[Rfam]
RNA sequence: ACGUGUUGCAAGAUUCCCGAUAGGAUUUAUCUGUAAACAGAACGGAUAAAGAUUCCUUGUAACCGAAUUAUCAAAGGGGGAAUGACCAUUAUG
Numbered sequence: 001a002c003g004u005g006u007u008g009c010a011a012g013a014u015u016c017c018c019g020a021u022a023g024g025a026u027u028u029a030u031c032u033g034u035a036a037a038c039a040g041a042a043c044g045g046a047u048a049a050a051g052a053u054u055c056c057u058u059g060u061a062a063c064c065g066a067a068u069u070a071u072c073a074a075a076g077g078g079g080g081a082a083u084g085a086c087c088a089u090u091a092u093g
Stems, first nucleotide, its partner, number of pairs: 014082005022057003026050009063077002
SAM-III riboswitch aptamer (SMK box): a 93-nucleotide RNA from Vagococcus entomophilus. A reference for the family is Fuchs et al. (2006), "The S(MK) box is a new SAM-binding RNA for translational regulation of SAM synthetase", Nat Struct Mol Biol. The source organism's lineage runs through Bacteria, Bacillati, Bacilli, Lactobacillales and Vagococcus.